[Rfam]
RNA sequence: AAUAUAUUGCCUGUUAAUUGGGCGGGCCAACUGUUGCCUGAAAAAGGGGUCA
Numbered sequence: 001a002a003u004a005u006a007u008u009g010c011c012u013g014u015u016a017a018u019u020g021g022g023c024g025g026g027c028c029a030a031c032u033g034u035u036g037c038c039u040g041a042a043a044a045a046g047g048g049g050u051c052a
Stems, first nucleotide, its partner, number of pairs: 009023005
Shown here is a 52-nucleotide sequence from Enterobacter cloacae, a member of the family "algC RNA". Rfam's curators put it in the seed alignment. Taxonomically the source falls in Enterobacter cloacae (Bacteria, Pseudomonadati, Enterobacteriaceae, Enterobacter). It is annotated as a cis-regulatory element. The family's consensus secondary structure is taken from published work.